[Rfam]
RNA: Molybdenum/Tungsten riboswitch aptamer (Moco RNA motif)
Organism: Sporomusa silvacetica
RNA sequence: UCAUAAGAUGAGUUCCAAGUCAUUAUUGCCCAUGUGGAAGUGAUGACCGAAGGGUAUGAAGAGCAAUUUUCAUGCCUGCCCGUAUUGUGCGAAGGAAGUCUGGUAAAUCAGGC
Numbered sequence: 001u002c003a004u005a006a007g008a009u010g011a012g013u014u015c016c017a018a019g020u021c022a023u024u025a026u027u028g029c030c031c032a033u034g035u036g037g038a039a040g041u042g043a044u045g046a047c048c049g050a051a052g053g054g055u056a057u058g059a060a061g062a063g064c065a066a067u068u069u070u071c072a073u074g075c076c077u078g079c080c081c082g083u084a085u086u087g088u089g090c091g092a093a094g095g096a097a098g099u100c101u102g103g104u105a106a107a108u109c110a111g112g113c
Stems, first nucleotide, its partner, number of pairs: 004106001006104001011099001013097004019047009029037001052077011078090002
Dot-bracket structure: ...(.(....(.((((..(((((((((.(.......).)))))))))....(((((((((((....)))))))))))((.........))...)))).)....).).......